[Rfam]
RNA sequence: GGAGGCCAGCGCGACUGGCGGCCGGAGGAUGGAAUCGACCAUCGGGGAGCUCGUCGUGGGAGCCGACCGCCUGGGCGACCACG
Dot-bracket structure: ...[[[..[.[[..[[(((((.......((((......))))..]]..]].]]]]......[[[..)))))..]]].......